A member of the RNA family "Small nucleolar RNA snoR100" from Rhododendron simsii, 107 nucleotides long.
For this family Rfam cites "Experimental RNomics: identification of 140 candidates for small non-messenger RNAs in the plant Arabidopsis thaliana" (Marker et al., Curr Biol, 2002).
It is annotated as an H/ACA-box small nucleolar RNA.
The base pairs follow the family's consensus structure, which was predicted with WAR.
A search with the family's covariance model found it, with a score of 84 bits.

RNA sequence: CAAUGAAGGAAGCAUGGAAAUGUGCACAUAAAUUGAUUUGGUCUCUAGGUCUGCCCUCCUUGAUGCUAUUUGGCUUUGAUUUGGGAGAAUGGUUUUACAACAAAACG
Numbered sequence: 001c002a003a004u005g006a007a008g009g010a011a012g013c014a015u016g017g018a019a020a021u022g023u024g025c026a027c028a029u030a031a032a033u034u035g036a037u038u039u040g041g042u043c044u045c046u047a048g049g050u051c052u053g054c055c056c057u058c059c060u061u062g063a064u065g066c067u068a069u070u071u072g073g074c075u076u077u078g079a080u081u082u083g084g085g086a087g088a089a090u091g092g093u094u095u096u097a098c099a100a101c102a103a104a105a106c107g
Stems, first nucleotide, its partner, number of pairs: 012025004040090001042088003049080003053074003